mir-9/mir-79 microRNA precursor family: a 78-nucleotide sequence from Acanthosepion pharaonis. For this family Rfam cites "Identification of novel genes coding for small expressed RNAs" (Lagos-Quintana et al., Science, 2001). It scores 73 bits against the family's covariance model.

[Rfam]
RNA sequence: CCGGUUUUGUCUUUGGUUAUCUAGCUGAAUGAUUGGAUCUGAUACUUCAUAAAGCUAGGUUACCAAAGGCAAAAAUGG
Numbered sequence: 001c002c003g004g005u006u007u008u009g010u011c012u013u014u015g016g017u018u019a020u021c022u023a024g025c026u027g028a029a030u031g032a033u034u035g036g037a038u039c040u041g042a043u044a045c046u047u048c049a050u051a052a053a054g055c056u057a058g059g060u061u062a063c064c065a066a067a068g069g070c071a072a073a074a075a076u077g078g
Base pairs, nucleotide, nucleotide: 001078002077003076005074007072008071009070010069011068012067013066014065015064016063017062019060020059021058022057023056024055025054026053029050030049031048032047